[Rfam]
RNA sequence: UCUGAAAGCAGGUGAGCCACUGACUAACGCACAUUGUGCCAGUUGACAGUUCCACUGUGCGUGUGACAGCGGCUAACCUGGUUUUGGGGACACCUCCU
Number, nucleotide and partner (000 for none) at each position: 001u000002c000003u000004g000005a084006a083007a082008g000009c080010a079011g078012g077013u000014g000015a074016g073017c072018c071019a000020c069021u068022g067023a000024c065025u063026a062027a000028c061029g060030c059031a058032c057033a056034u000035u054036g053037u000038g000039c000040c000041a000042g000043u000044u000045g000046a000047c000048a000049g000050u000051u000052c000053c036054a035055c000056u033057g032058u031059g030060c029061g028062u026063g025064u000065g024066a000067c022068a021069g020070c000071g018072g017073c016074u015075a000076a000077c012078c011079u010080g009081g000082u007083u006084u005085u000086g000087g000088g000089g000090a000091c000092a000093c000094c000095u000096c000097c000098u000